[Rfam]
RNA: Small nucleolar RNA Z43
RNA sequence: CAGCUAUGAUGGCUAUGUCUCGUUCGGUGUAUUGGCGAUAUCCAACAAAGCCAUGCCGACAAACUCUACAUAUCACCACUCACAAUCUGAGCUG
Numbered sequence: 001c002a003g004c005u006a007u008g009a010u011g012g013c014u015a016u017g018u019c020u021c022g023u024u025c026g027g028u029g030u031a032u033u034g035g036c037g038a039u040a041u042c043c044a045a046c047a048a049a050g051c052c053a054u055g056c057c058g059a060c061a062a063a064c065u066c067u068a069c070a071u072a073u074c075a076c077c078a079c080u081c082a083c084a085a086u087c088u089g090a091g092c093u094g
Stems, first nucleotide, its partner, number of pairs: 001094004040054002